This 134-nucleotide RNA from Saimiri boliviensis belongs to the Rfam family "U4 spliceosomal RNA". A reference for the family is Zwieb (1997), "The uRNA database", Nucleic Acids Res. The match comes from Rfam's covariance-model search (75 bits). Clan: U4 clan. Rfam classes the family as a spliceosomal small nuclear RNA.
[Rfam]
RNA sequence: AGCUUUGCGCAGUGGCAGUAUUGUAGCCAAUGAGGUUUAUCGAAGGGGCGAUUAUUGCUAAAACUUUUCGCAAUACCCCGCCGUAACAACUUGCAAUACAGUCGGCACUGGCAAUUUUUGAGUCUCUACGGUGA
Numbered sequence: 001a002g003c004u005u006u007g008c009g010c011a012g013u014g015g016c017a018g019u020a021u022u023g024u025a026g027c028c029a030a031u032g033a034g035g036u037u038u039a040u041c042g043a044a045g046g047g048g049c050g051a052u053u054a055u056u057g058c059u060a061a062a063a064c065u066u067u068u069c070g071c072a073a074u075a076c077c078c079c080g081c082c083g084u085a086a087c088a089a090c091u092u093g094c095a096a097u098a099c100a101g102u103c104g105g106c107a108c109u110g111g112c113a114a115u116u117u118u119u120g121a122g123u124c125u126c127u128a129c130g131g132u133g134a
Stems, first nucleotide, its partner, number of pairs: 020052005027046002035041001080112003083108002087104001089102003123134002126131001